[Rfam]
RNA sequence: CAAAGACGGUGCUUACCUCAACACCGUCUUUGAAUGUAAGCAUUCUAAGACGUUGUUGACAUAAGCACCGUCUUAGUAAGCUGACAUUCAAAGACGGUGCUGACCUAAGCACCGUCUUU
Number, nucleotide and partner (000 for none) at each position: 001c000002a000003a000004a117005g116006a115007c114008g000009g112010u111011g110012c109013u108014u107015a106016c000017c000018u103019c102020a101021a000022c099023a098024c097025c096026g095027u094028c093029u092030u091031u090032g089033a088034a087035u086036g085037u084038a000039a082040g000041c080042a000043u078044u000045c076046u075047a074048a073049g072050a071051c070052g069053u000054u067055g066056u065057u064058g000059a000060c000061a000062u000063a000064a057065g056066c055067a054068c000069c052070g051071u050072c049073u048074u047075a046076g045077u000078a043079a000080g041081c000082u039083g000084a037085c036086a035087u034088u033089c032090a031091a030092a029093g028094a027095c026096g025097g024098u023099g022100c000101u020102g019103a018104c000105c000106u015107a014108a013109g012110c011111a010112c009113c000114g007115u006116c005117u004118u000119u000
RNA: MIR4374 microRNA precursor family